RNA sequence: ACAAUGUGCUAGGGGUGCCUUAAGGCUGAGAGAUGAUUUACUAUCAUUAACCCUUUAAACCUGAUCUUGGUUAAUACCAGCGUAGGGAAGCCAUAUACGAUGCGU
Dot-bracket structure: .......(((((((..(((....)))......(((((.....)))))...)))).....((((..(.(((......))))..))))..)))..............
Shown here is a 105-nucleotide RNA sequence from Clostridium gasigenes, a member of the family "TPP riboswitch aptamer (THI element)". The match comes from Rfam's covariance-model search (73 bits). Rfam describes the family as follows. Vitamin B(1) in its active form thiamin pyrophosphate (TPP) is an essential coenzyme that is synthesised by coupling of pyrimidine and thiazole moieties in bacteria. The previously detected thiamin-regulatory element, thi box was extended, resulting in a new, highly conserved RNA secondary structure, the THI element, which is widely distributed in eubacteria and also occurs in some archaea. Analysis of operon structures identified a large number of new candidate thiamin-regulated genes, mostly transporters, in various prokaryotic organisms.